[Rfam]
RNA sequence: GGAAUCUGAGGACGGAACAGGCGGCCGUCACCCAUUGUUAGGAGAUGUGGAUUGUCACCCACCUAUUCC
Dot-bracket structure: (((((..(..(((((....[[[[.))))).(..........)....((((..]]]]..))))).)))))
Numbered sequence: 001g002g003a004a005u006c007u008g009a010g011g012a013c014g015g016a017a018c019a020g021g022c023g024g025c026c027g028u029c030a031c032c033c034a035u036u037g038u039u040a041g042g043a044g045a046u047g048u049g050g051a052u053u054g055u056c057a058c059c060c061a062c063c064u065a066u067u068c069c
Stems, first nucleotide, its partner, number of pairs: 001069005008063001011029005020056004031042001047062004

Shown here is a 69-nucleotide RNA from Clostridium sp. CAG:590, a member of the family "skipping-rope RNA". Rfam's curators put it in the seed alignment. Lineage of the source: Bacteria > Bacillati > Clostridia > Clostridiaceae > Clostridium. Rfam classes the family as a small RNA.